The record is an 88-nucleotide sequence from Megalops atlanticus, which matches "mir-7 microRNA precursor family" in Rfam. A search with the family's covariance model found it, with a score of 65 bits. On this family, see Lagos-Quintana et al., Science 2001: "Identification of novel genes coding for small expressed RNAs".

[Rfam]
RNA sequence: UGCCCCAGGUGCUGUGUGGAAGACUAGUGAUUUUGUUGUGCGGCUGAACAGAGACAACAAAUCCCAGUCUACCUCCCAGCCCGGGACA
Numbered sequence: 001u002g003c004c005c006c007a008g009g010u011g012c013u014g015u016g017u018g019g020a021a022g023a024c025u026a027g028u029g030a031u032u033u034u035g036u037u038g039u040g041c042g043g044c045u046g047a048a049c050a051g052a053g054a055c056a057a058c059a060a061a062u063c064c065c066a067g068u069c070u071a072c073c074u075c076c077c078a079g080c081c082c083g084g085g086a087c088a
Stems, first nucleotide, its partner, number of pairs: 002087001004085003008082002012079003016075001018073002021070005027065001029063005035058005